[Rfam]
RNA: Actinobacteria sRNA Ms_IGR-5
RNA sequence: ACACGAGGAAGGAGGUGGUUCGAAGAAUGGAUAGUUCUAGGACACGUGAGGUGGCUGUCCGCUAGCGCCACCGCUGCAGGUGGUAUCCGCCCGCGCGAGCGCUGAGCGAAUACCAGGCAGUCACCCGGCCCCCGAGCCCCCGGUCCUGUCCGACCGGGACCCGUGCAGGCACCCGCCGCACCGGUACGGCUCGGGGGCCGUUCCCU
Numbered sequence: 001a002c003a004c005g006a007g008g009a010a011g012g013a014g015g016u017g018g019u020u021c022g023a024a025g026a027a028u029g030g031a032u033a034g035u036u037c038u039a040g041g042a043c044a045c046g047u048g049a050g051g052u053g054g055c056u057g058u059c060c061g062c063u064a065g066c067g068c069c070a071c072c073g074c075u076g077c078a079g080g081u082g083g084u085a086u087c088c089g090c091c092c093g094c095g096c097g098a099g100c101g102c103u104g105a106g107c108g109a110a111u112a113c114c115a116g117g118c119a120g121u122c123a124c125c126c127g128g129c130c131c132c133c134g135a136g137c138c139c140c141c142g143g144u145c146c147u148g149u150c151c152g153a154c155c156g157g158g159a160c161c162c163g164u165g166c167a168g169g170c171a172c173c174c175g176c177c178g179c180a181c182c183g184g185u186a187c188g189g190c191u192c193g194g195g196g197g198c199c200g201u202u203c204c205c206u
Stems, first nucleotide, its partner, number of pairs: 014059006060108003063104004069099001071097001073094002126200013139158006